[Rfam]
RNA sequence: GUGUUGUGUCCUUCAUUCCACCGGAGUCUGUUUUAACAGAUCAGACUUCAGCGGAGUGAAGAGAACAACACA
Numbered sequence: 001g002u003g004u005u006g007u008g009u010c011c012u013u014c015a016u017u018c019c020a021c022c023g024g025a026g027u028c029u030g031u032u033u034u035a036a037c038a039g040a041u042c043a044g045a046c047u048u049c050a051g052c053g054g055a056g057u058g059a060a061g062a063g064a065a066c067a068a069c070a071c072a
Stems, first nucleotide, its partner, number of pairs: 011061006019053001021051001023049004028044003
Dot-bracket structure: ..........((((((..(.(.((((.(((...........))).)))).).)..))))))...........
Rfam assigns this 72-nucleotide RNA sequence from Triplophysa tibetana to the family "mir-205 microRNA precursor family". Lineage of the source: Eukaryota > Gnathostomata > Actinopterygii > Nemacheilidae > Triplophysa. Rfam 15.1 lists 1,154 matches to the family in 646 species. The match comes from Rfam's covariance-model search (63 bits). The base pairs follow the family's consensus structure, which was predicted with RNAalifold. Rfam links the family to the GO terms RISC complex and miRNA-mediated post-transcriptional gene silencing.